[Rfam]
Nucleotides: 081
Base pairs, nucleotide, nucleotide: 006076009073010072013068014067015066016065017064018063019062020061022059023058025056026055027054029053030052031051032050033049
Number, partner (000 for none) and nucleotide at each position: 001000c002000c003000u004000u005000g006076g007000u008000g009073u010072c011000c012000a013068a014067a015066g016065u017064g018063c019062u020061g021000u022059u023058u024000g025056u026055g027054c028000a029053a030052g031051u032050a033049g034000a035000u036000a037000a038000a039000c040000u041000c042000a043000u044000c045000a046000g047000a048000c049033c050032u051031a052030c053029u054027g055026c056025a057000a058023a059022a060000c061020c062019a063018g064017c065016a066015c067014u068013u069000c070000c071000u072010g073009a074000c075000u076006c077000a078000u079000a080000a081000g